[Rfam]
RNA: serC leader
RNA sequence: CGACGGGCCAUCCCUCCCCAACGAGGGACGACCCAUCUGCAAGGAUGGAGCAA
Numbered sequence: 001c002g003a004c005g006g007g008c009c010a011u012c013c014c015u016c017c018c019c020a021a022c023g024a025g026g027g028a029c030g031a032c033c034c035a036u037c038u039g040c041a042a043g044g045a046u047g048g049a050g051c052a053a
Base pairs, nucleotide, nucleotide: 011028012027013026014025015024016023033048034047035046036045037044038043